[Rfam]
RNA sequence: UACUUUAUGCAGAGAUAAUAUCGUAGCUAAUAAAGGUAUAGUGAGGUGCGAUUAUUGCUAGUCGAAAACUUUUAAAAUUCACAAUUCAUUCCUGGUCUACACCUUAGAUUUUAUUUAAUGUUUAAUGUGACUAUAGUAA
Numbered sequence: 001u002a003c004u005u006u007a008u009g010c011a012g013a014g015a016u017a018a019u020a021u022c023g024u025a026g027c028u029a030a031u032a033a034a035g036g037u038a039u040a041g042u043g044a045g046g047u048g049c050g051a052u053u054a055u056u057g058c059u060a061g062u063c064g065a066a067a068a069c070u071u072u073u074a075a076a077a078u079u080c081a082c083a084a085u086u087c088a089u090u091c092c093u094g095g096u097c098u099a100c101a102c103c104u105u106a107g108a109u110u111u112u113a114u115u116u117a118a119u120g121u122u123u124a125a126u127g128u129g130a131c132u133a134u135a136g137u138a139a
Stems, first nucleotide, its partner, number of pairs: 020052005026047003034042001083115003088110001090108002094104002128139001130137002

Notes: This 139-nucleotide sequence from Rhodnius prolixus belongs to the Rfam family "U4 spliceosomal RNA". The base pairs follow the family's consensus structure, which is taken from published work. NCBI's taxonomy places the organism under Eukaryota, Opisthokonta, Pancrustacea, Reduviidae, Rhodnius. The match comes from Rfam's covariance-model search (52 bits).